[Rfam]
RNA sequence: GGGGGUAGAUAAGGACCGGUGUCCUUGCCGAUCUUCAAAAUCGAGUUGUCGUGCUAAUACCACGACUGGUAGGUUCGAUUCCUACAUACUCCC
Dot-bracket structure: ((((((((..((((((....))))))..((((.......))))....((((...........))))...((((.......))))).)))))))